Background:
This 86-nucleotide sequence from Nesidiocoris tenuis belongs to the Rfam family "Selenocysteine transfer RNA". Rfam links the family to the GO term triplet codon-amino acid adaptor activity. The family's consensus secondary structure is taken from published work.

RNA sequence: GCCCAGUUGAUCACCGGUGGUCCGGUGUGCAGGCUUCAAACCUGUAUCUGUCUAACGCCAGAGUGGUUCGAUUCCACCUGCUGGGC
Numbered sequence: 001g002c003c004c005a006g007u008u009g010a011u012c013a014c015c016g017g018u019g020g021u022c023c024g025g026u027g028u029g030c031a032g033g034c035u036u037c038a039a040a041c042c043u044g045u046a047u048c049u050g051u052c053u054a055a056c057g058c059c060a061g062a063g064u065g066g067u068u069c070g071a072u073u074c075c076a077c078c079u080g081c082u083g084g085g086c
Stems, first nucleotide, its partner, number of pairs: 001086007009078001012027006028046006048061003052057001063077004